RNA sequence: GUGCAUCGCUAGGGGUGUCGCGUGUGUGGAAUGCGCGACUGAGAGAGUCCCUUUGAACCUGAUUGAGAUCAUCCUCGCGCAGGGAAGCAGGCAUGGCAGGGC
Numbered sequence: 001g002u003g004c005a006u007c008g009c010u011a012g013g014g015g016u017g018u019c020g021c022g023u024g025u026g027u028g029g030a031a032u033g034c035g036c037g038a039c040u041g042a043g044a045g046a047g048u049c050c051c052u053u054u055g056a057a058c059c060u061g062a063u064u065g066a067g068a069u070c071a072u073c074c075u076c077g078c079g080c081a082g083g084g085a086a087g088c089a090g091g092c093a094u095g096g097c098a099g100g101g102c
Stems, first nucleotide, its partner, number of pairs: 006090001008088003011052004016046001017039009058083004064077004
RNA: TPP riboswitch aptamer (THI element)